RNA sequence: ACCUUUUGCUAGGGGUGCCUUUGGCUGAGAUGAAGUUAAACUUUAGACCCUUAUUACUUGAACCGGAUAAUACCGGCGUAAGGAAGCGAACAGAUACUCCU
Numbered sequence: 001a002c003c004u005u006u007u008g009c010u011a012g013g014g015g016u017g018c019c020u021u022u023g024g025c026u027g028a029g030a031u032g033a034a035g036u037u038a039a040a041c042u043u044u045a046g047a048c049c050c051u052u053a054u055u056a057c058u059u060g061a062a063c064c065g066g067a068u069a070a071u072a073c074c075g076g077c078g079u080a081a082g083g084a085a086g087c088g089a090a091c092a093g094a095u096a097c098u099c100c101u
Stems, first nucleotide, its partner, number of pairs: 006089005011051004016045001017025003032044005057082004063076004